The record is a 139-nucleotide RNA from Oryza meyeriana, which matches "Small nucleolar RNA Z247" in Rfam. The family has 8 seed sequences and 7,071 matches in Rfam 15.1. The family's consensus secondary structure was predicted with PFOLD. The organism belongs to Oryza meyeriana, within Eukaryota. A search with the family's covariance model found it, with a score of 66 bits. The family's RNA type in Rfam is C/D-box small nucleolar RNA.
[Rfam]
RNA sequence: UCAGUCGAUGACGAUGAUUUAAUCAGCUAUAUCAUAGCAGGCCUAGAUGAUGACUUCAAGCCGGUCAUUGCAGCACUGGUUGCACGAUCGGAUCCAAUCACCAUUGGAGAAGCCUUCGCUCAGCUAUUAAGCUUUGAGC
Numbered sequence: 001u002c003a004g005u006c007g008a009u010g011a012c013g014a015u016g017a018u019u020u021a022a023u024c025a026g027c028u029a030u031a032u033c034a035u036a037g038c039a040g041g042c043c044u045a046g047a048u049g050a051u052g053a054c055u056u057c058a059a060g061c062c063g064g065u066c067a068u069u070g071c072a073g074c075a076c077u078g079g080u081u082g083c084a085c086g087a088u089c090g091g092a093u094c095c096a097a098u099c100a101c102c103a104u105u106g107g108a109g110a111a112g113c114c115u116u117c118g119c120u121c122a123g124c125u126a127u128u129a130a131g132c133u134u135u136g137a138g139c
Stems, first nucleotide, its partner, number of pairs: 005137004088108002091105003
Dot-bracket structure: ....((((...............................................................................((.(((.........))).)).........................))))..